Rfam assigns this 166-nucleotide RNA from Mycobacteroides abscessus to the family "c-di-AMP riboswitch aptamer (ydaO/yuaA leader)".
Nucleotides: 166
Stems, first nucleotide, its partner, number of pairs: 001023001027145005036085002086131003094107004110125004
Number, partner (000 for none) and nucleotide at each position: 001023c002000g003000c004000g005000u006000c007000g008000g009000a010000a011000g012000a013000c014000c015000a016000a017000g018000g019000g020000a021000c022000g023001g024000a025000g026000a027145c028144g029143g030142g031141g032000g033000a034000c035000c036085c037084a038000u039000c040000c041000g042000c043000c044000g045000g046000a047000g048000a049000u050000c051000c052000a053000c054000c055000c056000g057000a058000u059000c060000u061000c062000c063000a064000g065000c066000a067000c068000g069000a070000a071000c072000c073000u074000u075000g076000a077000u078000g079000g080000u081000u082000c083000u084037u085036g086131g087130g088129g089000u090000g091000a092000a093000g094107c095106c096105c097104g098000g099000g100000c101000a102000a103000c104097c105096g106095g107094g108000c109000c110125g111124a112123g113122c114000g115000a116000c117000c118000u119000c120000u121000u122113g123112c124111u125110c126000g127000a128000a129088c130087c131086c132000g133000a134000c135000a136000g137000c138000u139000g140000a141031c142030c143029u144028c145027g146000c147000a148000g149000g150000u151000g152000c153000g154000u155000c156000a157000c158000a159000g160000a161000g162000a163000g164000g165000a166000a
The base pairs follow the family's consensus structure. It scores 60 bits against the family's covariance model. Taxonomically the source falls in Mycobacteroides abscessus (Bacteria, Actinomycetes, Mycobacteriales, Mycobacteriaceae).